[Rfam]
The family of this 84-nucleotide RNA from Sulfitobacter guttiformis is "chrB-a RNA".
RNA sequence: CUUAUGGGGAUCAAUCUGCGAACGCCCCGUGAGGCGCUAGCCAGAUGUUCGCAUUUUUCCAACGAAGGAAGGAUGCAUGCCAUG
Numbered sequence: 001c002u003u004a005u006g007g008g009g010a011u012c013a014a015u016c017u018g019c020g021a022a023c024g025c026c027c028c029g030u031g032a033g034g035c036g037c038u039a040g041c042c043a044g045a046u047g048u049u050c051g052c053a054u055u056u057u058u059c060c061a062a063c064g065a066a067g068g069a070a071g072g073a074u075g076c077a078u079g080c081c082a083u084g
Stems, first nucleotide, its partner, number of pairs: 005029005051076006
Taxonomically the source falls in Sulfitobacter (Bacteria, Pseudomonadati, Rhodobacterales, Roseobacteraceae).
Rfam classes the family as a cis-regulatory element.